[Rfam]
RNA: Bacterial RNase P class B
RNA sequence: UAUUUUAGGCAAACGCUGUAUAAUUAUUAUAUAGAGGAAAGUCCAUGCUCGCAAAAGCUGAAAUGCUUUUAGUGUUUGUGCUUAAGGAAUAAAUAACUUAAGGUAGAGUAAUCUAACGGCUUAAAAGGAAACCUAAGUCUUUUGAUAUGGUGUCUUUUUUGUAAAGUGCUAUAGUGACGAAUUUAUUAGAAAUAAUAAAAGUGGAACGAAGUAAACCCCACAAGCGAGAAACCCAAAUUAUGGUAGGGGAGUUCUAAUAGGAAAUAAAAACUGAUUUAGAGAUCGAAAGAUAGAUAAAUGUUUGCCACCUUUAAGGUACAGAACAUGGCUUAUUAAA
Numbered sequence: 001u002a003u004u005u006u007a008g009g010c011a012a013a014c015g016c017u018g019u020a021u022a023a024u025u026a027u028u029a030u031a032u033a034g035a036g037g038a039a040a041g042u043c044c045a046u047g048c049u050c051g052c053a054a055a056a057g058c059u060g061a062a063a064u065g066c067u068u069u070u071a072g073u074g075u076u077u078g079u080g081c082u083u084a085a086g087g088a089a090u091a092a093a094u095a096a097c098u099u100a101a102g103g104u105a106g107a108g109u110a111a112u113c114u115a116a117c118g119g120c121u122u123a124a125a126a127g128g129a130a131a132c133c134u135a136a137g138u139c140u141u142u143u144g145a146u147a148u149g150g151u152g153u154c155u156u157u158u159u160u161g162u163a164a165a166g167u168g169c170u171a172u173a174g175u176g177a178c179g180a181a182u183u184u185a186u187u188a189g190a191a192a193u194a195a196u197a198a199a200a201g202u203g204g205a206a207c208g209a210a211g212u213a214a215a216c217c218c219c220a221c222a223a224g225c226g227a228g229a230a231a232c233c234c235a236a237a238u239u240a241u242g243g244u245a246g247g248g249g250a251g252u253u254c255u256a257a258u259a260g261g262a263a264a265u266a267a268a269a270a271c272u273g274a275u276u277u278a279g280a281g282a283u284c285g286a287a288a289g290a291u292a293g294a295u296a297a298a299u300g301u302u303u304g305c306c307a308c309c310u311u312u313a314a315g316g317u318a319c320a321g322a323a324c325a326u327g328g329c330u331u332a333u334u335a336a337a
Stems, first nucleotide, its partner, number of pairs: 004337003007333001008306007016034006039331003043328005048228005053070006076223005081102006103117001104115004118218002123160003131151003137146003166216002168212003183198006232248003252281006282291003308316003